[Rfam]
RNA sequence: UACAAUAGUUCGGCUCUCAAGGGUAGUCGGCUCACUCUCUUUUAUCCCAACAGGGAAGGGGGGUGAGAGUAUGACGGUAUACGAGGCAAUUUCAUUAAUGAUAGCGUUUGGUAUGCUGAUAAUUGCCAUACUGUCUUUUCCAAAACGGAAAUAGACUUCCCUUGACCUGACCAGUUGGGGAAGUCUAUUUUCUAAUAGCACUUUGAGCCGACCCUUUGCAGGGACAAACUAUUGUACCGACCGUGGGUGUUAGCAGCACCUGCG
Numbered sequence: 001u002a003c004a005a006u007a008g009u010u011c012g013g014c015u016c017u018c019a020a021g022g023g024u025a026g027u028c029g030g031c032u033c034a035c036u037c038u039c040u041u042u043u044a045u046c047c048c049a050a051c052a053g054g055g056a057a058g059g060g061g062g063g064u065g066a067g068a069g070u071a072u073g074a075c076g077g078u079a080u081a082c083g084a085g086g087c088a089a090u091u092u093c094a095u096u097a098a099u100g101a102u103a104g105c106g107u108u109u110g111g112u113a114u115g116c117u118g119a120u121a122a123u124u125g126c127c128a129u130a131c132u133g134u135c136u137u138u139u140c141c142a143a144a145a146c147g148g149a150a151a152u153a154g155a156c157u158u159c160c161c162u163u164g165a166c167c168u169g170a171c172c173a174g175u176u177g178g179g180g181a182a183g184u185c186u187a188u189u190u191u192c193u194a195a196u197a198g199c200a201c202u203u204u205g206a207g208c209c210g211a212c213c214c215u216u217u218g219c220a221g222g223g224a225c226a227a228a229c230u231a232u233u234g235u236a237c238c239g240a241c242c243g244u245g246g247g248u249g250u251u252a253g254c255a256g257c258a259c260c261u262g263c264g
Base pairs, nucleotide, nucleotide: 001236002235003234004233005232007230008229009228010226011210012209013208014207015206016205018164019163020162021161022160023159025157026156027155028154032066033065034064036063037062038061039060040059041058042057043056073135074134075133076132077131078130079129087100088099110127111126112125113124173193174192213223214222242264243263244262245261246260247259248258249257250256251255